The record is a 114-nucleotide sequence from Strongyloides ratti, which matches "Potassium channel RNA editing signal" in Rfam. Pairs were carried over by alignment from the consensus structure, which is taken from published work. Taxonomically the source falls in Strongyloides (Eukaryota, Bilateria, Nematoda, Strongyloidoidea). Its family is annotated with adenosine to inosine editing in the Gene Ontology. Rfam 15.1 lists 14,095 matches to the family in 1,000 species. This family represents a group of sequences related to the human potassium channel Kv1.1 hairpin element which directs the efficient modification of an adenosine to inosine by an adenosine deaminase acting on RNA (ADAR). The ADAR modification causes an isoleucine/valine recoding event which lies in the ion-conducting pore of the potassium channel.
[Rfam]
RNA sequence: AUAGGAUUUGGUGAUAUGGUACCAAAGACAUACCUUGGUAUGAUUGUUGGUAGUGUUUGUGCAUUAAUGGGUGUCUUAACAAUAGCCCUUCCUGUACCAGUUAUUGUUUCUAAU
Numbered sequence: 001a002u003a004g005g006a007u008u009u010g011g012u013g014a015u016a017u018g019g020u021a022c023c024a025a026a027g028a029c030a031u032a033c034c035u036u037g038g039u040a041u042g043a044u045u046g047u048u049g050g051u052a053g054u055g056u057u058u059g060u061g062c063a064u065u066a067a068u069g070g071g072u073g074u075c076u077u078a079a080c081a082a083u084a085g086c087c088c089u090u091c092c093u094g095u096a097c098c099a100g101u102u103a104u105u106g107u108u109u110c111u112a113a114u
Base pairs, nucleotide, nucleotide: 001114002113004111005110009106010105011104013102014101015100018097021095022094037077038076040074050062051061